[Rfam]
Mycobacterium smegmatis small RNA 1: a 303-nucleotide RNA sequence from Mycobacterium fragae. About the family: Mycobacterium smegmatis small RNA 1 is highly expressed during stationary phase of growth. Ms1 RNA directly interacts with RNA polymerase (RNAP), but in a different way than 6S, which is present in other bacteria. Ms1 does not require the presence of the main sigma factor for RNAP interaction. There is evidence that Ms1 RNA may function similar to 6S RNA in M. smegmatis which does not have 6S RNA. The family's consensus secondary structure was predicted with CMfinder. Lineage of the source: Bacteria > Bacillati > Actinomycetota > Mycobacteriales > Mycobacterium. On this family, see Hnilicova et al., Nucleic Acids Res 2014: "Ms1, a novel sRNA interacting with the RNA polymerase core in mycobacteria".

RNA sequence: ACGGAAGCCCGGUACGGCCAAGGUCGAUCCGGAAGAGAAGGUUCGAGCUCCCGAACUGGGCGACCCAGCACGGCACCCGGCACCCACGCGGAGUCACAGCCACGAUAAAGGCAGAAGUGUUGCGGGCCUGCGUAAUUGCGAAGAGCGACCGGCCUCGACGGCCCUUUGGGUGGGGCUGCAGUCGGACGCAUCGCAAGAUCGCCGAGGCCAACCCACGCAACCCAGAGUUGCACGCUUGGUAACCGAGUUCCGUGCUAGCGGGCGGCGAGCCGAAGUUCUUCGGAUCGUCGCUCGCUUUAUCUU
Number, nucleotide and partner (000 for none) at each position: 001a000002c000003g065004g064005a000006a000007g061008c060009c059010c058011g057012g056013u000014a000015c000016g052017g051018c000019c000020a000021a049022g048023g000024u000025c045026g044027a043028u000029c041030c040031g000032g000033a000034a000035g000036a000037g000038a000039a000040g030041g029042u000043u027044c026045g025046a000047g000048c022049u021050c000051c017052c016053g000054a000055a000056c012057u011058g010059g009060g008061c007062g000063a000064c004065c003066c000067a256068g255069c254070a253071c252072g251073g250074c000075a000076c000077c000078c245079g244080g243081c000082a000083c000084c239085c238086a237087c000088g235089c234090g233091g000092a000093g231094u230095c000096a000097c000098a000099g112100c111101c110102a000103c000104g000105a000106u000107a000108a000109a000110g101111g100112c099113a000114g000115a000116a000117g000118u000119g221120u220121u219122g218123c217124g216125g209126g208127c207128c206129u205130g202131c201132g200133u000134a000135a000136u196137u195138g194139c193140g192141a191142a000143g000144a000145g189146c188147g187148a000149c185150c184151g183152g182153c181154c000155u000156c000157g000158a000159c178160g177161g176162c175163c174164c173165u172166u000167u000168g000169g000170g000171u000172g165173g164174g163175g162176c161177u160178g159179c000180a000181g153182u152183c151184g150185g149186a000187c147188g146189c145190a000191u141192c140193g139194c138195a137196a136197g000198a000199u000200c132201g131202c130203c000204g000205a129206g128207g127208c126209c125210a000211a000212c000213c000214c000215a000216c124217g123218c122219a121220a120221c119222c000223c000224a000225g000226a000227g000228u000229u000230g094231c093232a000233c090234g089235c088236u000237u086238g085239g084240u000241a000242a000243c080244c079245g078246a000247g000248u000249u000250c073251c072252g071253u070254g069255c068256u067257a000258g295259c294260g293261g292262g291263c290264g289265g288266c287267g286268a285269g000270c283271c282272g281273a000274a000275g000276u000277u000278c000279u000280u000281c272282g271283g270284a000285u268286c267287g266288u265289c264290g263291c262292u261293c260294g259295c258296u000297u000298u000299a000300u000301c000302u000303u000